[Rfam]
RNA sequence: CAUCGCGAUGCUCUUCAAUCAUGGAGACAUCGUGAUGAGGAUACUUUCAAAACGCCAGCUGAAGGAGUUGGUCUUGUAUUCACACCAACACGUUGCACGCUUGGAAAAGGCAGGCAAAUUCCCCAAGCGGGUGCAGCUUGGCCCGAACCGGGUGGGAUGGGUUGAGGAUGAAGUGCUGGACUGGCUGCAAUUGCGGCUGGAUGAUCGCGAAAUUCCCAACCGACACUCCUGAUACAGGAGCUGGGUGGCCGGGCGUGCACAGCUC
Dot-bracket structure: ((((((((((.((((((....)))))))))))))))).................((((((...(.(((((((((..(((((((..((((.((((.(((..(.(.....(((.(((.....(((.....)))....)))..)))....).).))).)))).))))..).)).))))..))))))))).)......)))))).((.((((...........(((...((((((...)))))).))))))).))(((.......))).

Ruegeria trans44 sRNA: a 265-nucleotide RNA from Maritimibacter sp. 55A14.
The source organism's lineage runs through Bacteria, Pseudomonadota, Alphaproteobacteria, Rhodobacterales and Maritimibacter.
A search with the family's covariance model found it, with a score of 259 bits.
On this family, see Rivers et al., Front Microbiol 2016: "Experimental Identification of Small Non-Coding RNAs in the Model Marine Bacterium Ruegeria pomeroyi DSS-3".